[Rfam]
RNA: Makes More Granules Regulator RNA (mmgR)
RNA sequence: UGCAAAUGCCCUUAUUGGGCGUUUCCUCCCUAGAUUUGACCGCUCCAUAUGGCGCGGUCUUUUUUUUGGAUAAU
Numbered sequence: 001u002g003c004a005a006a007u008g009c010c011c012u013u014a015u016u017g018g019g020c021g022u023u024u025c026c027u028c029c030c031u032a033g034a035u036u037u038g039a040c041c042g043c044u045c046c047a048u049a050u051g052g053c054g055c056g057g058u059c060u061u062u063u064u065u066u067u068g069g070a071u072a073a074u
Stems, first nucleotide, its partner, number of pairs: 008020004038059006045052002
Dot-bracket structure: .......((((.....)))).................((((((.((....)).))))))...............